[Rfam]
RNA sequence: UCGACUGUGCUCGUACAGGAUCACUUCUAUAGUGAAUCUGGUUACUGAUGCCAUCAGCGACAGUUGCUGUCAACAGCCGUGAUGAUGAGUUGUACGUUCUGCCGUUCGCGGAAUUAAGUUAUCAAAUUUUACAAUUUGCUUGACGUCGAUGAAGUGUGUUAACCUAUACGGUGACAGCGGUAUUGAACGAAUCUGAACGGCA
Number, nucleotide and partner (000 for none) at each position: 001u041002c040003g039004a000005c000006u035007g000008u034009g033010c032011u031012c000013g000014u000015a000016c000017a028018g027019g026020a025021u000022c000023a000024c000025u020026u019027c018028u017029a000030u000031a011032g010033u009034g008035a006036a000037u000038c000039u003040g002041g001042u000043u000044a000045c000046u000047g071048a070049u069050g068051c000052c066053a065054u000055c063056a000057g000058c000059g000060a000061c000062a000063g055064u000065u053066g052067c000068u050069g049070u048071c047072a000073a000074c000075a000076g201077c200078c199079g198080u197081g000082a000083u000084g000085a000086u000087g000088a000089g000090u000091u000092g000093u000094a000095c189096g188097u187098u186099c185100u182101g181102c180103c179104g178105u000106u000107c156108g155109c154110g000111g000112a000113a000114u000115u000116a000117a000118g144119u143120u142121a141122u000123c000124a000125a000126a000127u000128u000129u000130u000131a000132c000133a000134a000135u000136u000137u000138g000139c000140u000141u121142g120143a119144c118145g000146u000147c000148g000149a000150u000151g000152a000153a000154g109155u108156g107157u176158g175159u174160u173161a000162a172163c000164c000165u000166a000167u000168a000169c000170g000171g000172u162173g160174a159175c158176a157177g000178c104179g103180g102181u101182a100183u000184u000185g099186a098187a097188c096189g095190a000191a000192u000193c000194u000195g000196a000197a080198c079199g078200g077201c076202a000

A member of the RNA family "ACEA small nucleolar RNA U3" from Babesia ovis, 202 nucleotides long. NCBI's taxonomy places the organism under Eukaryota, Sar, Apicomplexa, Babesiidae, Babesia. Small nucleolar RNAs (snoRNAs) are involved in the processing and modification of rRNA in the nucleolus. There are two main classes of snoRNAs: the box C/D class, and the box H/ACA class. U3 snoRNA is a member of the box C/D class. Indeed, the box C/D element is a subset of the six short sequence elements found in all U3 snoRNAs, namely boxes A, A', B, C, C', and D. The U3 snoRNA secondary structure is characterised by a small 5' domain (with boxes A and A'), and a larger 3' domain (with boxes B, C, C', and D), the two domains being linked by a single-stranded hinge. By type it is a C/D-box small nucleolar RNA.